[Rfam]
RNA sequence: UUGCGAUCCGCUAAACGGUCAGGCCGUGCUGCGGGAGGUCUGGUUAACCCGCUAUUUCUCGACAAACUUGAGGAAAAGGUGAGCG
Numbered sequence: 001u002u003g004c005g006a007u008c009c010g011c012u013a014a015a016c017g018g019u020c021a022g023g024c025c026g027u028g029c030u031g032c033g034g035g036a037g038g039u040c041u042g043g044u045u046a047a048c049c050c051g052c053u054a055u056u057u058c059u060c061g062a063c064a065a066a067c068u069u070g071a072g073g074a075a076a077a078g079g080u081g082a083g084c085g
Stems, first nucleotide, its partner, number of pairs: 002085003007035005016026004037049003041046001050081004057073006
RNA: SucA RNA motif